[Rfam]
Notes: This 84-nucleotide sequence from Dryobates pubescens belongs to the Rfam family "Small nucleolar RNA SNORD103/SNORD85". Rfam links the family to the GO terms nucleolus and RNA processing. On this family, see Vitali et al., Nucleic Acids Res 2003: "Identification of 13 novel human modification guide RNAs". The base pairs follow the family's consensus structure. NCBI's taxonomy places the organism under Eukaryota, Gnathostomata, Euteleostomi, Amniota, Dryobates. The match comes from Rfam's covariance-model search (60 bits).
RNA sequence: GCUGGCAAUGAUGUCACACUUGCCCUCGCUGAGAGCUGUGCUCGCUGAGGGGAGCAUCUGUGUGCUCAGUGCAGCUGAGCCAGC
Numbered sequence: 001g002c003u004g005g006c007a008a009u010g011a012u013g014u015c016a017c018a019c020u021u022g023c024c025c026u027c028g029c030u031g032a033g034a035g036c037u038g039u040g041c042u043c044g045c046u047g048a049g050g051g052g053a054g055c056a057u058c059u060g061u062g063u064g065c066u067c068a069g070u071g072c073a074g075c076u077g078a079g080c081c082a083g084c
Base pairs, nucleotide, nucleotide: 001084002083003082004081005080006079